About this RNA
Shown here is a 119-nucleotide RNA sequence from Gleimia coleocanis, a member of the family "FMN riboswitch aptamer (RFN element)". Its family is annotated with FMN binding in the Gene Ontology. The base pairs follow the family's consensus structure, which is taken from published work. Taxonomically the source falls in Gleimia coleocanis (Bacteria, Actinomycetota, Actinomycetaceae, Gleimia).
RNA sequence: AGUCAGCUUCGGGGUCGGUGAAAGUCCGAACCGGCGGUUAAAGUCCGCGACCCGCUUAGGCGGUUGAACUGGUGAAACUCCAGUACCGACGGUUAAAGUCCGGAUGGGAGAAGCUCUAC
Numbered sequence: 001a002g003u004c005a006g007c008u009u010c011g012g013g014g015u016c017g018g019u020g021a022a023a024g025u026c027c028g029a030a031c032c033g034g035c036g037g038u039u040a041a042a043g044u045c046c047g048c049g050a051c052c053c054g055c056u057u058a059g060g061c062g063g064u065u066g067a068a069c070u071g072g073u074g075a076a077a078c079u080c081c082a083g084u085a086c087c088g089a090c091g092g093u094u095a096a097a098g099u100c101c102g103g104a105u106g107g108g109a110g111a112a113g114c115u116c117u118a119c
Stems, first nucleotide, its partner, number of pairs: 005115006016028003030099002032088002034048004043086002052063002068084005090102003